[Rfam]
RNA sequence: ACUCAACACUAACAAUUUAGAAUGAGCAAAUCGGUAUUACUACAGCAUGCUGCCUUUGUCGCAGAUCCUGGAACAAUACGCUAGCUCAAAACUUGUCUUUACGAGUUU
Numbered sequence: 001a002c003u004c005a006a007c008a009c010u011a012a013c014a015a016u017u018u019a020g021a022a023u024g025a026g027c028a029a030a031u032c033g034g035u036a037u038u039a040c041u042a043c044a045g046c047a048u049g050c051u052g053c054c055u056u057u058g059u060c061g062c063a064g065a066u067c068c069u070g071g072a073a074c075a076a077u078a079c080g081c082u083a084g085c086u087c088a089a090a091a092c093u094u095g096u097c098u099u100u101a102c103g104a105g106u107u108u
Stems, first nucleotide, its partner, number of pairs: 023088005034079005043070003050064004
The family of this 108-nucleotide sequence from Flavobacterium aurantiibacter is "6S-Flavo RNA". A search with the family's covariance model found it, with a score of 88 bits. The family's RNA type in Rfam is small RNA. Pairs were carried over by alignment from the consensus structure, which is taken from published work.